This 75-nucleotide RNA sequence from Streptomyces malaysiensis belongs to the Rfam family "ASpks TB sRNA".
Pairs were carried over by alignment from the consensus structure, which is taken from published work.
It is annotated as an antisense RNA.
The organism belongs to Streptomyces, within Bacteria.

[Rfam]
RNA sequence: CUUGAUCGAACCCAGCCGCAACGGCCGCUCCUCGGGCCUCUCCUGCCCGUACGUGGCGAGCAGUGCCUGCGCCUC
Numbered sequence: 001c002u003u004g005a006u007c008g009a010a011c012c013c014a015g016c017c018g019c020a021a022c023g024g025c026c027g028c029u030c031c032u033c034g035g036g037c038c039u040c041u042c043c044u045g046c047c048c049g050u051a052c053g054u055g056g057c058g059a060g061c062a063g064u065g066c067c068u069g070c071g072c073c074u075c
Stems, first nucleotide, its partner, number of pairs: 015025003031071001033069001038065001043060002047056003